[Rfam]
RNA: SAM-I/IV (S-adenosyl methionine) riboswitch aptamer
Organism: Alkaliphilus peptidifermentans
RNA sequence: AUAUCUUAUCAAGAGUUAGGGUAGAGAGUUAGCUCGUUGACCCUGCGCCAACCUACUUAAAAAGCAAGGUGGUUCUGCUAACAUCGAUAAGGAGGCAAAUAAGCCAAUAUAACCUUCUUAG
Dot-bracket structure: .....(((((....(.(((((...................))))))(((..(((.((..[[.))..))).)))............)))))...(((......))).........]].....